Rfam assigns this 148-nucleotide RNA from Anisodus acutangulus to the family "Small nucleolar RNA snoR136". Gene Ontology terms of the family: RNA processing and nucleolus. Lineage of the source: Eukaryota > Spermatophyta > Pentapetalae > Solanaceae > Anisodus. For this family Rfam cites "Mining small RNA sequencing data: a new approach to identify small nucleolar RNAs in Arabidopsis" (Chen and Wu, Nucleic Acids Res, 2009). The base pairs follow the family's consensus structure, which was predicted with mfold. The family's RNA type in Rfam is H/ACA-box small nucleolar RNA.

[Rfam]
RNA sequence: GAGUGCUUCUGUUCUUCUAUCUAAUGUUCAUUUGUGCACUCUGUUUUCCAUAUCUGCUGUGGUAAUUGAAAUCUCCAUGUCAAUGUUCCCCUCGCUAUCCUUUGCGCCUAAUUCUGGUGGUGUAUUUGGAUGUUGGGGUACUACAUUA
Numbered sequence: 001g002a003g004u005g006c007u008u009c010u011g012u013u014c015u016u017c018u019a020u021c022u023a024a025u026g027u028u029c030a031u032u033u034g035u036g037c038a039c040u041c042u043g044u045u046u047u048c049c050a051u052a053u054c055u056g057c058u059g060u061g062g063u064a065a066u067u068g069a070a071a072u073c074u075c076c077a078u079g080u081c082a083a084u085g086u087u088c089c090c091c092u093c094g095c096u097a098u099c100c101u102u103u104g105c106g107c108c109u110a111a112u113u114c115u116g117g118u119g120g121u122g123u124a125u126u127u128g129g130a131u132g133u134u135g136g137g138g139u140a141c142u143a144c145a146u147u148a
Stems, first nucleotide, its partner, number of pairs: 001076001003073001005072001008069002011066003016062002026057002030053002033050001036049001038047001085141002088138004093132002098130003108120003